RNA: SAM riboswitch aptamer (S box leader)
RNA sequence: CGCCCAUCCAGAGCGACCGAGAGACCUGGCUCGUCGACGUCGCAGCAACCCUUCGGCGACGCCGGACACGGGUGCUUCCGCCGGGAUCGAUGGAGG
Numbered sequence: 001c002g003c004c005c006a007u008c009c010a011g012a013g014c015g016a017c018c019g020a021g022a023g024a025c026c027u028g029g030c031u032c033g034u035c036g037a038c039g040u041c042g043c044a045g046c047a048a049c050c051c052u053u054c055g056g057c058g059a060c061g062c063c064g065g066a067c068a069c070g071g072g073u074g075c076u077u078c079c080g081c082c083g084g085g086a087u088c089g090a091u092g093g094a095g096g
Stems, first nucleotide, its partner, number of pairs: 001096001004093005013043005021032003026084004044076004049072002052066004080088001